[Rfam]
RNA sequence: AUAGAGAACUCCUAGGGUUCCGCGUUUGGCAUGAAAGAUGACAAACGGACCGGUCCGAGAGGAGUUCGCGCCGAAGCCGGCGUCACACGGAGGGAUAAAAGCCCGGGAGGU
Numbered sequence: 001a002u003a004g005a006g007a008a009c010u011c012c013u014a015g016g017g018u019u020c021c022g023c024g025u026u027u028g029g030c031a032u033g034a035a036a037g038a039u040g041a042c043a044a045a046c047g048g049a050c051c052g053g054u055c056c057g058a059g060a061g062g063a064g065u066u067c068g069c070g071c072c073g074a075a076g077c078c079g080g081c082g083u084c085a086c087a088c089g090g091a092g093g094g095a096u097a098a099a100a101g102c103c104c105g106g107g108a109g110g111u
Stems, first nucleotide, its partner, number of pairs: 007066006015056002020053002022050001023047006068083006086106001088109001092104003